[Rfam]
RNA sequence: UCACUGGUUUCUUCAUUGCCACAUCAAAUCAGAAAGGGUUGUGGCAGUGCCGAUUCUAGUGGC
Numbered sequence: 001u002c003a004c005u006g007g008u009u010u011c012u013u014c015a016u017u018g019c020c021a022c023a024u025c026a027a028a029u030c031a032g033a034a035a036g037g038g039u040u041g042u043g044g045c046a047g048u049g050c051c052g053a054u055u056c057u058a059g060u061g062g063c
Stems, first nucleotide, its partner, number of pairs: 002061006010053002014049010029037002
The record is a 63-nucleotide RNA sequence from Caenorhabditis brenneri, which matches "mir-1824 microRNA precursor family" in Rfam.